[Rfam]
RNA sequence: AUAAAGGAUUUGAAGACUUAAACUUGUAGACUUAAAGAAUUUGAAGAAUCCAACUUGCAGACUUAAAGAAUUUGAAGACUUCAAUU
Numbered sequence: 001a002u003a004a005a006g007g008a009u010u011u012g013a014a015g016a017c018u019u020a021a022a023c024u025u026g027u028a029g030a031c032u033u034a035a036a037g038a039a040u041u042u043g044a045a046g047a048a049u050c051c052a053a054c055u056u057g058c059a060g061a062c063u064u065a066a067a068g069a070a071u072u073u074g075a076a077g078a079c080u081u082c083a084a085u086u
Stems, first nucleotide, its partner, number of pairs: 002083001004081003009076006017068003021064001025059004032053002036049001
Shown here is an 86-nucleotide RNA sequence from Solanum lycopersicum, a member of the family "MIR8024 microRNA precursor family".
A search with the family's covariance model found it, with a score of 61 bits.
Its family is annotated with miRNA-mediated post-transcriptional gene silencing and RISC complex in the Gene Ontology.
NCBI's taxonomy places the organism under Eukaryota, Tracheophyta, Gunneridae, Solanoideae, Solanum subgen. Lycopersicon.
The family has 2 seed sequences and 661 matches in Rfam 15.1.
The base pairs follow the family's consensus structure, which was predicted with RNAalifold.